Shown here is a 114-nucleotide RNA from Streptomyces sp. UH6, a member of the family "SAM (S-adenosyl methionine) riboswitch aptamer".
The literature on the family includes a 2008 paper in RNA by Weinberg et al., "The aptamer core of SAM-IV riboswitches mimics the ligand-binding site of SAM-I riboswitches".
NCBI's taxonomy places the organism under Bacteria, Bacillati, Actinomycetota, Streptomycetaceae, Streptomyces.

[Rfam]
RNA sequence: GGCAUUGAGCGUCAGCGUCAAGCCCUGGCUCGCUGACCGGCAACCCUUCCACGCGACGGGGUGCUCCAGGUGAAAGCCCGGCGGGACCGACGACGGUUCCCGCAAGCGCGUGGC
Numbered sequence: 001g002g003c004a005u006u007g008a009g010c011g012u013c014a015g016c017g018u019c020a021a022g023c024c025c026u027g028g029c030u031c032g033c034u035g036a037c038c039g040g041c042a043a044c045c046c047u048u049c050c051a052c053g054c055g056a057c058g059g060g061g062u063g064c065u066c067c068a069g070g071u072g073a074a075a076g077c078c079c080g081g082c083g084g085g086a087c088c089g090a091c092g093a094c095g096g097u098u099c100c101c102g103c104a105a106g107c108g109c110g111u112g113g114c
Base pairs, nucleotide, nucleotide: 001078002077003076009038011037012036013035014034015033016032021030022029039065040064041063044061045060046059048056049055081103082102083101084100085099086097087096088095089094